[Rfam]
RNA sequence: CGGUGAGUAAAGUUCACGGGGCACCGUGACAUCCGGUUGAAAGGAUGACAGCCAGGUAAUUGGCGAGGGACAAUUAGGCCGGGGUCGCCG
Numbered sequence: 001c002g003g004u005g006a007g008u009a010a011a012g013u014u015c016a017c018g019g020g021g022c023a024c025c026g027u028g029a030c031a032u033c034c035g036g037u038u039g040a041a042a043g044g045a046u047g048a049c050a051g052c053c054a055g056g057u058a059a060u061u062g063g064c065g066a067g068g069g070a071c072a073a074u075u076a077g078g079c080c081g082g083g084g085u086c087g088c089c090g
Stems, first nucleotide, its partner, number of pairs: 001090006032083007051064005
Annotation: This 90-nucleotide RNA sequence from a Nitrosopumilaceae archaeon belongs to the Rfam family "DUF3800-X RNA". It is annotated as a small RNA. Pairs were carried over by alignment from the consensus structure, which is taken from published work.